[Rfam]
RNA: Y RNA
Nucleotides: 082
Base pairs, nucleotide, nucleotide: 001073002072003071004070005069006068007067008066010065011064014061016056017055018054019053020052021051027040028039030037
Number, partner (000 for none) and nucleotide at each position: 001073a002072g003071u004070u005069g006068g007067u008066c009000c010065g011064a012000a013000g014061g015000u016056u017055g018054u019053g020052g021051g022000u023000u024000a025000u026000c027040g028039u029000u030037a031000u032000u033000g034000a035000u036000u037030u038000a039028a040027u041000a042000u043000u044000g045000u046000c047000u048000c049000c050000c051021c052020c053019c054018a055017c056016a057000c058000c059000c060000c061014c062000u063000c064011u065010u066008g067007a068006c069005u070004a071003g072002c073001u074000u075000u076000g077000u078000u079000u080000u081000u082000u